The record is a 57-nucleotide sequence from Streptomyces sp. A73, which matches "L17-Actino-Proteobacteria ribosomal protein leader" in Rfam.
Taxonomically the source falls in Streptomyces (Bacteria, Bacillati, Actinomycetota, Kitasatosporales).
It scores 47 bits against the family's covariance model.
[Rfam]
RNA sequence: CCGCGCCCCUGACGGGGCGCGGGUCCGUAUCCCCGGUACCUGAUACGGCCGGGACUG
Number, nucleotide and partner (000 for none) at each position: 001c022002c021003g020004c019005g018006c017007c016008c015009c014010u000011g000012a000013c000014g009015g008016g007017g006018c005019g004020c003021g002022g001023g000024u000025c000026c057027g056028u000029a000030u000031c000032c053033c052034c051035g050036g049037u048038a000039c000040c000041u000042g000043a000044u000045a000046c000047g000048g037049c036050c035051g034052g033053g032054a000055c000056u027057g026